The record is a 123-nucleotide RNA from Bisgaardia hudsonensis, which matches "Haemophilus regulatory RNA responsive to iron" in Rfam. A search with the family's covariance model found it, with a score of 77 bits. The family's RNA type in Rfam is small RNA. Lineage of the source: Bacteria > Gammaproteobacteria > Pasteurellales > Pasteurellaceae > Bisgaardia. The family's consensus secondary structure was predicted with CMfinder.
RNA sequence: CUGUUUGUUAGGUAUUGCGGUUAAAAAUGUUUAGUUUCAUUUUUAGGGUACUCCAAACAGUAGAGUAGAAAGUAAAUUCGUUAGGGUAUUUAAAAAGCUGGAGUUUAAACUUCAGCUUUUUUU
Dot-bracket structure: ..((.(((........................(((.((........)).)))....)))))..............((((....))))....((((((((((((......))))))))))))..
Involved in iron homeostasis in Haemophilus species. Orthologues exist only among other Pasteurellacae.